[Rfam]
Shown here is a 397-nucleotide sequence from Levilinea saccharolytica, a member of the family "Bacterial RNase P class A". Taxonomically the source falls in Levilinea (Bacteria, Anaerolineae, Anaerolineales, Anaerolineaceae). Rfam's curators write: Ribonuclease P (RNase P) is a ubiquitous endoribonuclease, found in archaea, bacteria and eukarya as well as chloroplasts and mitochondria. Its best characterised activity is the generation of mature 5'-ends of tRNAs by cleaving the 5'-leader elements of precursor-tRNAs. Cellular RNase Ps are ribonucleoproteins. The match comes from Rfam's covariance-model search (258 bits). By type it is a ribozyme.
RNA sequence: CAGGUCGGCCGGGAGAUCGCGGCUUCGCUAUGUCGAAGUCGAGGAAAGUCCGCGCUCCACAGGGCAAGAUGCCGGGUAACCCCCGGGGCGGGGUAACCUGCCGGAUCGGGCCACAGAAACAUACCGCCCUCACGGGCAAGGGUGAAACGGUGGUGUAAGAGACCACCGGCGUCCGCAGCAAUGCGGCGGCCAGGCAACCCCCAUCUGGAGCAAGGCCAAGCAGGCGCAAGCGCCCCUUGUGGGCGCAGGAAGCGGCUCGUUUCCUUUGAGCGUCGGGUAGGCUGCUUGAGCGCAUCGGAGACGGUGCGCCUAGAGAGAUGAUCUCCAAAACCGAGGCAGUCCCCGCGUGGGAUACCCCUUGGUUGAACAGAACGCGGCUUAUAGGCUGACCUGGGGC
Numbered sequence: 001c002a003g004g005u006c007g008g009c010c011g012g013g014a015g016a017u018c019g020c021g022g023c024u025u026c027g028c029u030a031u032g033u034c035g036a037a038g039u040c041g042a043g044g045a046a047a048g049u050c051c052g053c054g055c056u057c058c059a060c061a062g063g064g065c066a067a068g069a070u071g072c073c074g075g076g077u078a079a080c081c082c083c084c085g086g087g088g089c090g091g092g093g094u095a096a097c098c099u100g101c102c103g104g105a106u107c108g109g110g111c112c113a114c115a116g117a118a119a120c121a122u123a124c125c126g127c128c129c130u131c132a133c134g135g136g137c138a139a140g141g142g143u144g145a146a147a148c149g150g151u152g153g154u155g156u157a158a159g160a161g162a163c164c165a166c167c168g169g170c171g172u173c174c175g176c177a178g179c180a181a182u183g184c185g186g187c188g189g190c191c192a193g194g195c196a197a198c199c200c201c202c203a204u205c206u207g208g209a210g211c212a213a214g215g216c217c218a219a220g221c222a223g224g225c226g227c228a229a230g231c232g233c234c235c236c237u238u239g240u241g242g243g244c245g246c247a248g249g250a251a252g253c254g255g256c257u258c259g260u261u262u263c264c265u266u267u268g269a270g271c272g273u274c275g276g277g278u279a280g281g282c283u284g285c286u287u288g289a290g291c292g293c294a295u296c297g298g299a300g301a302c303g304g305u306g307c308g309c310c311u312a313g314a315g316a317g318a319u320g321a322u323c324u325c326c327a328a329a330a331c332c333g334a335g336g337c338a339g340u341c342c343c344c345g346c347g348u349g350g351g352a353u354a355c356c357c358c359u360u361g362g363u364u365g366a367a368c369a370g371a372a373c374g375c376g377g378c379u380u381a382u383a384g385g386c387u388g389a390c391c392u393g394g395g396g397c
Base pairs, nucleotide, nucleotide: 001393002392003391004390005389006388007387008386009385010384011382012326013325014324015323016322017321018320020041021040022039023038024037025036026035027034046380047379048378050377051376052375053374054373055210056209057208058207062258063257064256065255067206068205069204070203071202072086073085074084075083076082088102089100090099091098092097103201104200108199109198110195111194112193124141125140126137127136128135129134149167150166151165152164153163154162169190170188171187173186174185175184176183177182214283215282216281217280224274249263250262251261252260253259290309291308292307293306294305295304296303297302